[Rfam]
RNA: ArcZ RNA
Organism: Salmonella enterica
RNA sequence: GUGCGGCCUGAAAACAGGACUGCGCCUUUGACAUCAUCAUAAUAAGCACGGCGCAGCCACGAUUUCCCUGGUGUUGGCGCAGUAUUCGCGCACCCCGGUCAAACC
Numbered sequence: 001g002u003g004c005g006g007c008c009u010g011a012a013a014a015c016a017g018g019a020c021u022g023c024g025c026c027u028u029u030g031a032c033a034u035c036a037u038c039a040u041a042a043u044a045a046g047c048a049c050g051g052c053g054c055a056g057c058c059a060c061g062a063u064u065u066c067c068c069u070g071g072u073g074u075u076g077g078c079g080c081a082g083u084a085u086u087c088g089c090g091c092a093c094c095c096c097g098g099u100c101a102a103a104c105c
Base pairs, nucleotide, nucleotide: 020056021055022054023053024052025051026050070094071093072092077091078090079089080088